[Rfam]
RNA sequence: CUGGGUUAUCAGAAGCAUAGCAGCAGUGCCCACGUCGUAGCCCUGCCAGAUUCUAACGAAUCUGCAAAUUCUGCU
Numbered sequence: 001c002u003g004g005g006u007u008a009u010c011a012g013a014a015g016c017a018u019a020g021c022a023g024c025a026g027u028g029c030c031c032a033c034g035u036c037g038u039a040g041c042c043c044u045g046c047c048a049g050a051u052u053c054u055a056a057c058g059a060a061u062c063u064g065c066a067a068a069u070u071c072u073g074c075u
Stems, first nucleotide, its partner, number of pairs: 015041001019075005025069001026038003047064007